[Rfam]
RNA: FMN riboswitch aptamer (RFN element)
Organism: Cryobacterium sp. SO1
RNA sequence: AACGUGCUCCGGGGUCGGUGAGAAUCCGAACCGGCGGUGAAAGUCCGCGAGCCGGGACCUGAUCGUUGGGUACCGGUUGAGCUGGUGAAAUUCCAGCACCGACGGUUAAAGUCCGGAUGGGAGGCGCACGGA
Numbered sequence: 001a002a003c004g005u006g007c008u009c010c011g012g013g014g015u016c017g018g019u020g021a022g023a024a025u026c027c028g029a030a031c032c033g034g035c036g037g038u039g040a041a042a043g044u045c046c047g048c049g050a051g052c053c054g055g056g057a058c059c060u061g062a063u064c065g066u067u068g069g070g071u072a073c074c075g076g077u078u079g080a081g082c083u084g085g086u087g088a089a090a091u092u093c094c095a096g097c098a099c100c101g102a103c104g105g106u107u108a109a110a111g112u113c114c115g116g117a118u119g120g121g122a123g124g125c126g127c128a129c130g131g132a
Stems, first nucleotide, its partner, number of pairs: 003130005009124002016028003030112002032101002034048004043099002051077005081097005103115003